[Rfam]
RNA sequence: CAAUUAAAUUAGCAAACCUGUUGAAAAGCAGAGUACGCAAAGCUAAAGGGCCUUCAUCCAAUUCAUGGGAUAUGGCAGCCAGUUGCACCA
Numbered sequence: 001c002a003a004u005u006a007a008a009u010u011a012g013c014a015a016a017c018c019u020g021u022u023g024a025a026a027a028g029c030a031g032a033g034u035a036c037g038c039a040a041a042g043c044u045a046a047a048g049g050g051c052c053u054u055c056a057u058c059c060a061a062u063u064c065a066u067g068g069g070a071u072a073u074g075g076c077a078g079c080c081a082g083u084u085g086c087a088c089c090a
Stems, first nucleotide, its partner, number of pairs: 012038002017033001018031005041084004048080002050076003057070003
c-di-GMP-I riboswitch aptamer: a 90-nucleotide RNA from Amedibacterium intestinale. It scores 56 bits against the family's covariance model.